The family of this 303-nucleotide RNA sequence from Andalucia godoyi is "RNase MRP". Clan: RNaseP clan. Gene Ontology terms of the family: ribonuclease MRP activity, ribonuclease MRP complex and rRNA processing. A reference for the family is Piccinelli et al. (2005), "Identification and analysis of ribonuclease P and MRP RNA in a broad range of eukaryotes", Nucleic Acids Res. The match comes from Rfam's covariance-model search (71 bits). Rfam's curators write: RNase MRP is an enzymatically active ribonucleoprotein with two distinct roles in eukaryotes. Rfam classes the family as a ribozyme. NCBI's taxonomy places the organism under Eukaryota, Jakobida, Andalucina, Andaluciidae, Andalucia.
[Rfam]
RNA sequence: CCCGAGUUUGAUGCCAUCUCCGAAGGAGCCACAUACGACGACGCAGCUGUGCGCUCGUUGCUUUGCCUUUCCACUGCUCCUGAGAAAGUCGCCGGACACGCAUAAGCCGAAAGGGCUGCACGACGAGCGUAGCUUGUUGUGUGCUAGCUUGCUCGUGUCCAAGGUGCGUUCCUGUUGUCGAAGAUCCGCAAGGAGAGGCACAUGGUGCCUUGGACCUGCAGGUUGCUGUCGUCUUUCCGCAAGUUAUGGGGAUAGCUCGAAAACCACGAGCAAAUAGAACGGCGCUUAUGAAGUCAAACGCGG
Number, nucleotide and partner (000 for none) at each position: 001c000002c303003c302004g301005a000006g299007u298008u297009u296010g295011a294012u000013g000014c000015c000016a253017u252018c251019u250020c249021c248022g000023a000024a081025g080026g079027a078028g077029c076030c000031a000032c000033a000034u000035a000036c000037g000038a000039c065040g064041a063042c000043g061044c060045a059046g058047c057048u000049g000050u000051g000052c000053g000054c000055u000056c000057g047058u046059u045060g044061c043062u000063u041064u040065g039066c000067c000068u000069u000070u000071c000072c000073a000074c000075u000076g029077c028078u027079c026080c025081u024082g000083a000084g000085a000086a287087a286088g285089u000090c284091g283092c282093c281094g000095g000096a000097c000098a000099c000100g000101c000102a000103u000104a000105a117106g116107c115108c114109g000110a000111a000112a000113g000114g108115g107116c106117u105118g000119c000120a000121c000122g000123a000124c000125g000126a000127g000128c000129g000130u000131a142132g000133c000134u139135u000136g000137u000138u000139g134140u000141g000142u131143g000144c000145u000146a000147g000148c000149u000150u000151g219152c218153u000154c000155g000156u000157g215158u214159c213160c212161a211162a210163g000164g208165u207166g206167c205168g000169u000170u000171c000172c000173u000174g000175u000176u200177g199178u198179c197180g000181a000182a000183g000184a000185u000186c193187c192188g000189c000190a000191a000192g187193g186194a000195g000196a000197g179198g178199c177200a176201c000202a000203u000204g000205g167206u166207g165208c164209c000210u162211u161212g160213g159214a158215c157216c000217u000218g152219c151220a000221g000222g000223u000224u000225g000226c000227u000228g000229u000230c000231g000232u000233c000234u000235u000236u000237c000238c000239g000240c000241a000242a000243g000244u000245u000246a000247u000248g021249g020250g019251g018252a017253u016254a000255g271256c270257u269258c268259g267260a000261a000262a000263a000264c000265c000266a000267c259268g258269a257270g256271c255272a000273a000274a000275u000276a000277g000278a000279a000280c000281g093282g092283c091284g090285c088286u087287u086288a000289u000290g000291a000292a000293g000294u011295c010296a009297a008298a007299c006300g000301c004302g003303g002